[Rfam]
RNA sequence: UGCAGGUGAUGAUCACCCCUUGCUGUCAUAAAAAACGUGAUGACAACCACCAAGAUCGCUGAUGCA
Numbered sequence: 001u002g003c004a005g006g007u008g009a010u011g012a013u014c015a016c017c018c019c020u021u022g023c024u025g026u027c028a029u030a031a032a033a034a035a036c037g038u039g040a041u042g043a044c045a046a047c048c049a050c051c052a053a054g055a056u057c058g059c060u061g062a063u064g065c066a
Stems, first nucleotide, its partner, number of pairs: 001066004
Dot-bracket structure: ((((..........................................................))))
RNA: Small nucleolar RNA SNORD24